TPP riboswitch aptamer (THI element): a 98-nucleotide RNA from [Clostridium] fimetarium. A search with the family's covariance model found it, with a score of 61 bits. Taxonomically the source falls in Lachnoclostridium (Bacteria, Bacillati, Clostridia, Lachnospirales). Its family is annotated with thiamine pyrophosphate binding in the Gene Ontology.

[Rfam]
RNA sequence: GAAUAUUUAGUGGGGGACUCUUUGAGUUGAGAAGGUUAAAACCUGACCCUUUGAACCUGUCAGUUAAUACUGUCGUAGGGAGUAUGUUAUAGAGAACU
Numbered sequence: 001g002a003a004u005a006u007u008u009a010g011u012g013g014g015g016g017a018c019u020c021u022u023u024g025a026g027u028u029g030a031g032a033a034g035g036u037u038a039a040a041a042c043c044u045g046a047c048c049c050u051u052u053g054a055a056c057c058u059g060u061c062a063g064u065u066a067a068u069a070c071u072g073u074c075g076u077a078g079g080g081a082g083u084a085u086g087u088u089a090u091a092g093a094g095a096a097c098u
Stems, first nucleotide, its partner, number of pairs: 006086001008084002012049003016044001017027004034043003056079004061072003